[Rfam]
Shown here is an 87-nucleotide RNA from Myotis lucifugus, a member of the family "mir-9195 microRNA precursor family".
RNA sequence: AGAGGCCCUUUGUGGCUGCGGUGGAACGCUUGCCUCAUCACUGCGGUGACGAAGCAAGCAUUCCGCCAGGCCACUCACGUUGCCCAC
Dot-bracket structure: ...(((.....((((((..(((((((.((((((....((((....))))....)))))).))))))).)))))).......)))...
Numbered sequence: 001a002g003a004g005g006c007c008c009u010u011u012g013u014g015g016c017u018g019c020g021g022u023g024g025a026a027c028g029c030u031u032g033c034c035u036c037a038u039c040a041c042u043g044c045g046g047u048g049a050c051g052a053a054g055c056a057a058g059c060a061u062u063c064c065g066c067c068a069g070g071c072c073a074c075u076c077a078c079g080u081u082g083c084c085c086a087c
Stems, first nucleotide, its partner, number of pairs: 004084003012074006020067007028059006038049004

Background:
Rfam links the family to the GO terms RISC complex and miRNA-mediated post-transcriptional gene silencing.